[Rfam]
A member of the RNA family "Small nucleolar RNA SNORD115" from Carlito syrichta, 79 nucleotides long. It is annotated as a C/D-box small nucleolar RNA. Gene Ontology terms of the family: RNA processing and nucleolus.
RNA sequence: GGUCAAUGAUGAAAUCUUGCCUUGUCUCUAGAGAGGUGUUAUUUUAAAAGUCAUGUGCAAUAUAGUUAUGCUGAGGACC
Numbered sequence: 001g002g003u004c005a006a007u008g009a010u011g012a013a014a015u016c017u018u019g020c021c022u023u024g025u026c027u028c029u030a031g032a033g034a035g036g037u038g039u040u041a042u043u044u045u046a047a048a049a050g051u052c053a054u055g056u057g058c059a060a061u062a063u064a065g066u067u068a069u070g071c072u073g074a075g076g077a078c079c
Stems, first nucleotide, its partner, number of pairs: 001078001003076001004073002007070002
Dot-bracket structure: (.(((.((............................................................)).))..).).